[Rfam]
RNA sequence: AUAUGACUCCCGAGCACCGGGCAGCGGGGAAUUGGGACGCAGGCGCGGACCCGGGGAUCACUCCCCCAGCACGGGUAUGAAACCAUAGGGGACCUGUCCGGGUGGCCUCCGGGAUAGGCGCUCCCCAAGGUAAUACGUGGGAUGGAGGGGGA
Number, nucleotide and partner (000 for none) at each position: 001a000002u000003a000004u000005g000006a000007c000008u000009c141010c140011c139012g000013a000014g000015c000016a131017c130018c129019g126020g125021g124022c000023a000024g121025c120026g119027g000028g000029g000030a000031a000032u111033u000034g109035g108036g107037a000038c047039g046040c045041a000042g000043g000044c000045g040046c039047g038048g000049a000050c105051c104052c102053g000054g000055g099056g098057a097058u096059c000060a000061c000062u092063c091064c090065c089066c088067c000068a000069g000070c000071a000072c000073g000074g000075g000076u000077a000078u000079g000080a000081a000082a000083c000084c000085a000086u000087a000088g066089g065090g064091g063092a062093c000094c000095u000096g058097u057098c056099c055100g000101g000102g052103u000104g051105g050106c000107c036108u035109c034110c000111g032112g000113g000114a000115u000116a000117g000118g000119c026120g025121c024122u000123c000124c021125c020126c019127a000128a000129g018130g017131u016132a000133a000134u000135a000136c000137g000138u000139g011140g010141g009142a000143u000144g000145g000146a000147g000148g000149g000150g000151g000152a000
This 152-nucleotide sequence from Sarcophilus harrisii belongs to the Rfam family "Connexin-32 internal ribosome entry site (IRES)".
Lineage of the source: Eukaryota > Bilateria > Amniota > Theria > Sarcophilus.
Rfam describes the family as follows. This family represents the connexin-32 internal ribosome entry site (IRES) which allows cap independent translation during conditions such as heat shock and stress.
Rfam 15.1 lists 135 matches to the family in 132 species.
For this family Rfam cites "Analysis of a Charcot-Marie-Tooth disease mutation reveals an essential internal ribosome entry site element in the connexin-32 gene" (Hudder and Werner, J Biol Chem, 2000).
Gene Ontology term of the family: ribosome binding.